[Rfam]
RNA sequence: UGCAUUCGAUAGUAUUCGACUGUAUUCACGGUGUGAAAUAGGGGAUUACAUUAUUUUUAAAACGGAAAGUGAAUCAAUUAAUAUAAUAGACAUCU
Numbered sequence: 001u002g003c004a005u006u007c008g009a010u011a012g013u014a015u016u017c018g019a020c021u022g023u024a025u026u027c028a029c030g031g032u033g034u035g036a037a038a039u040a041g042g043g044g045a046u047u048a049c050a051u052u053a054u055u056u057u058u059a060a061a062a063c064g065g066a067a068a069g070u071g072a073a074u075c076a077a078u079u080a081a082u083a084u085a086a087u088a089g090a091c092a093u094c095u
Base pairs, nucleotide, nucleotide: 007089009087010086012084013083015081016080018079019078021076022075024074025073026072027071028070029069032064033063034062035057036056037055038054039053040052041051
The family of this 95-nucleotide RNA sequence from Nicotiana sylvestris is "MIR6152 microRNA precursor family".
It scores 80 bits against the family's covariance model.
The base pairs follow the family's consensus structure, which was predicted with RNAalifold.
Gene Ontology terms of the family: RISC complex and miRNA-mediated post-transcriptional gene silencing.